[Rfam]
RNA sequence: UUCUCAAUGAUUAAGCCGUGUAGAUUCAUGGCGAUAUACGCUAUUCUGAGUCUUUAAGAUGUCAUCAAACUUUAUGAGAGAA
Numbered sequence: 001u002u003c004u005c006a007a008u009g010a011u012u013a014a015g016c017c018g019u020g021u022a023g024a025u026u027c028a029u030g031g032c033g034a035u036a037u038a039c040g041c042u043a044u045u046c047u048g049a050g051u052c053u054u055u056a057a058g059a060u061g062u063c064a065u066c067a068a069a070c071u072u073u074a075u076g077a078g079a080g081a082a
Stems, first nucleotide, its partner, number of pairs: 001082005

The family of this 82-nucleotide sequence from Aegilops tauschii is "Small nucleolar RNA U54". Taxonomically the source falls in Aegilops tauschii (Eukaryota, Streptophyta, Embryophyta, Aegilops). Pairs were carried over by alignment from the consensus structure, which was predicted with PFOLD.